[Rfam]
Description: Rfam assigns this 89-nucleotide RNA from Bombyx mori to the family "mir-274 microRNA precursor family". The source organism's lineage runs through Eukaryota, Eumetazoa, Aparaglossata, Amphiesmenoptera and Bombyx.
RNA sequence: UGUUAGGCGAAGUUGGUUUGUGACCGUCACUAACGGGCAGUGUUAAUACGGUUGCUCGUUUUGGCGAUCGCAAAAUGAACUCGCUUGAC
Numbered sequence: 001u002g003u004u005a006g007g008c009g010a011a012g013u014u015g016g017u018u019u020g021u022g023a024c025c026g027u028c029a030c031u032a033a034c035g036g037g038c039a040g041u042g043u044u045a046a047u048a049c050g051g052u053u054g055c056u057c058g059u060u061u062u063g064g065c066g067a068u069c070g071c072a073a074a075a076u077g078a079a080c081u082c083g084c085u086u087g088a089c
Stems, first nucleotide, its partner, number of pairs: 003088008013078003017074007025066002028064001032060008